[Rfam]
RNA sequence: CAGAAAUGAUGAUUUUGUAUCACGAUGGUCUACUGAGCUCAAAUGGAGCAUUGUUGAAACCUGUAUACACUGAUUUGAAUUA
Number, nucleotide and partner (000 for none) at each position: 001c077002a076003g075004a074005a000006a000007u000008g000009a000010u000011g000012a000013u000014u000015u000016u000017g000018u000019a000020u000021c000022a000023c000024g000025a000026u000027g000028g000029u000030c000031u000032a000033c000034u000035g000036a000037g000038c000039u000040c000041a000042a000043a000044u000045g000046g000047a000048g000049c000050a000051u000052u000053g000054u000055u000056g000057a000058a000059a000060c000061c000062u000063g000064u000065a000066u000067a000068c000069a000070c000071u000072g000073a000074u004075u003076u002077g001078a000079a000080u000081u000082a000